[Rfam]
RNA sequence: UAGUCUGAGGAGCGCUGCAACGGACCUUCCAGGUCCGCCAGGCUCAGACACCUCCCAAAACGGCGCUCGCUGUAU
Dot-bracket structure: ..((((((............((((((.....))))))......))))))..........................